[Rfam]
RNA sequence: CCCUCCGAAGUUUCCCUCAGGAUAGCUGGAGCCCGUGGACGAGUUCUAUCAGGUAAAGCCAAUGAUUAGAGGCAUCGGGGACGCAAUGCCCUCGACCUAUUCUCAAACUUUAAAUGGGUAGGACGGCGCGGCUGCUUCAUUGAGCCGCACCAUGGAAUCGAGAGCUCCAAGUGGGCCAUUUUUGGUAAGCAGAACUGGUGAUGCGGGAUGAACCAGAAGCCGGGUUACGGUGCCCAACUGAGCUCUAACCUAGAACCCACAAAGGGUGUUGGUCGAUUAAGACAGCAGGACGGUGGUCAUGGAAGUCGAAAUCCGCUAAGGAGUGUGUAACAACUCACCUGCCGAAUCAACUAGCCCCGAAAAUGGAUGGCGCUUAAGCGCGCGACCUACACCCGGCCGUCGGGGCAAGUGCCAGGCCCCGAUGAGUAGGAGGGCGCGGCGGUCGCCGCGAAACCUGGGGCGCGAGCCCGGGCGGAGCGGCCGUCGGUGCAGAU
Number, nucleotide and partner (000 for none) at each position: 001c434002c433003c432004u431005c430006c429007g000008a000009a000010g000011u024012u000013u022014c021015c020016c000017u000018c000019a000020g015021g014022a013023u000024a011025g000026c000027u169028g168029g167030a166031g165032c164033c000034c000035g000036u000037g000038g000039a000040c000041g000042a000043g000044u123045u122046c121047u120048a119049u118050c117051a000052g000053g000054u000055a000056a111057a109058g108059c000060c000061a000062a000063u105064g104065a103066u000067u000068a100069g000070a098071g097072g096073c000074a000075u095076c094077g093078g092079g091080g090081a000082c088083g000084c000085a000086a000087u000088g082089c000090c080091c079092u078093c077094g076095a075096c072097c071098u070099a000100u068101u000102c000103u065104c064105a063106a000107a000108c058109u057110u000111u056112a000113a000114a000115u000116g000117g050118g049119u048120a047121g046122g045123a044124c000125g151126g150127c000128g148129c147130g146131g145132c144133u143134g000135c000136u000137u000138c000139a000140u000141u000142g000143a133144g132145c131146c130147g129148c128149a000150c126151c125152a000153u000154g000155g000156a000157a000158u000159c000160g000161a000162g000163a000164g032165c031166u030167c029168c028169a027170a000171g000172u000173g000174g000175g199176c198177c197178a196179u000180u194181u193182u192183u191184g190185g000186u000187a000188a000189g000190c184191a183192g182193a181194a180195c000196u178197g177198g176199u175200g000201a000202u000203g000204c000205g214206g213207g000208a000209u000210g000211a000212a000213c206214c205215a000216g000217a000218a000219g397220c396221c395222g394223g393224g000225u391226u000227a000228c000229g387230g386231u385232g000233c000234c000235c000236a000237a000238c384239u000240g383241a000242g000243c380244u000245c378246u000247a000248a000249c000250c000251u000252a000253g000254a000255a000256c000257c000258c000259a000260c000261a000262a000263a000264g358265g357266g356267u000268g355269u354270u353271g352272g351273u350274c000275g348276a347277u346278u000279a000280a000281g000282a000283c000284a000285g342286c341287a340288g339289g338290a000291c315292g314293g313294u000295g000296g000297u309298c308299a000300u000301g000302g000303a000304a000305g000306u000307c000308g298309a297310a000311a000312u000313c293314c292315g291316c320317u000318a000319a000320g316321g336322a000323g000324u000325g334326u333327g000328u000329a000330a000331c000332a000333a326334c325335u000336c321337a000338c289339c288340u287341g286342c285343c000344g000345a000346a277347u276348c275349a000350a273351c272352u271353a270354g269355c268356c266357c265358c264359g000360a000361a000362a000363a000364u000365g000366g000367a000368u000369g000370g000371c000372g000373c000374u000375u000376a000377a000378g245379c000380g243381c000382g000383c240384g238385a231386c230387c229388u000389a000390c000391a225392c000393c223394c222395g221396g220397c219398c424399g423400u422401c421402g420403g419404g418405g417406c416407a000408a000409g000410u000411g000412c000413c000414a000415g000416g406417c405418c404419c403420c402421g401422a400423u399424g398425a000426g000427u000428a000429g006430g005431a004432g003433g002434g001435c489436g000437c486438g485439g484440c483441g482442g481443u480444c479445g478446c477447c000448g000449c000450g000451a000452a000453a000454c472455c000456u000457g000458g000459g468460g467461c466462g000463c000464g000465a000466g461467c460468c459469c000470g000471g000472g454473c000474g000475g000476a000477g446478c445479g444480g443481c442482c441483g440484u439485c438486g437487g000488u000489g435490c000491a000492g000493a000494u000
The record is a 494-nucleotide part of an RNA from Trema andersonii, which matches "Eukaryotic large subunit ribosomal RNA" in Rfam. Its family is annotated with ribosome and structural constituent of ribosome in the Gene Ontology. Its Rfam clan is "LSU clan". Pairs were carried over by alignment from the consensus structure, which is taken from published work. Taxonomically the source falls in Trema (Eukaryota, Streptophyta, Magnoliopsida, rosids). A reference for the family is Yusupov et al. (2001), "Crystal structure of the ribosome at 5.5 A resolution", Science.